[Rfam]
Nucleotides: 073
Stems, first nucleotide, its partner, number of pairs: 001073001004070004010064010024051007
Number, partner (000 for none) and nucleotide at each position: 001073u002000g003000a004070c005069u006068g007067u008000c009000c010064u011063a012062a013061g014060u015059a016058g017057u018056a019055g020000u021000g022000c023000c024051g025050c026049a027048g028047g029046u030045a031000c032000u033000u034000c035000u036000g037000u038000a039000a040000c041000a042000u043000u044000g045030u046029a047028c048027c049026u050025g051024c052000a053000c054000u055019c056018u057017a058016c059015u060014g061013c062012u063011u064010a065000c066000c067007a068006c069005a070004g071000a072000g073001g
mir-252 microRNA precursor family: a 73-nucleotide RNA from Owenia fusiformis. The family is grouped with related families in Rfam's "mir-252 microRNA precursor family". Gene Ontology terms of the family: RISC complex and miRNA-mediated post-transcriptional gene silencing. For this family Rfam cites "Direct sequencing and expression analysis of a large number of miRNAs in Aedes aegypti and a multi-species survey of novel mosquito miRNAs" (Li et al., BMC Genomics, 2009). A search with the family's covariance model found it, with a score of 64 bits.